[Rfam]
A member of the RNA family "gut-2 RNA", 48 nucleotides long.
RNA sequence: GACCUCGCUCUAAGCGGUGAGUGAGAAGAGCCGAGAGGGGCUAACUGA
Dot-bracket structure: ...(((((((........)))))))...((((......))))......
Numbered sequence: 001g002a003c004c005u006c007g008c009u010c011u012a013a014g015c016g017g018u019g020a021g022u023g024a025g026a027a028g029a030g031c032c033g034a035g036a037g038g039g040g041c042u043a044a045c046u047g048a
Stems, first nucleotide, its partner, number of pairs: 004025007029042004